[Rfam]
RNA sequence: CCAACAGUGAUGACCACAACAUGCCAUCUGAGUUGCUUUGCUGAAAUCCAGAGGCUGUUUCUGAGCUG
Numbered sequence: 001c002c003a004a005c006a007g008u009g010a011u012g013a014c015c016a017c018a019a020c021a022u023g024c025c026a027u028c029u030g031a032g033u034u035g036c037u038u039u040g041c042u043g044a045a046a047u048c049c050a051g052a053g054g055c056u057g058u059u060u061c062u063g064a065g066c067u068g
Stems, first nucleotide, its partner, number of pairs: 005068004
Description
Shown here is a 68-nucleotide RNA sequence, a member of the family "Small nucleolar RNA SNORD95". It is one of the family's seed sequences. Pairs were carried over by alignment from the consensus structure, which was predicted with PFOLD. Rfam 15.1 lists 190 matches to the family in 136 species.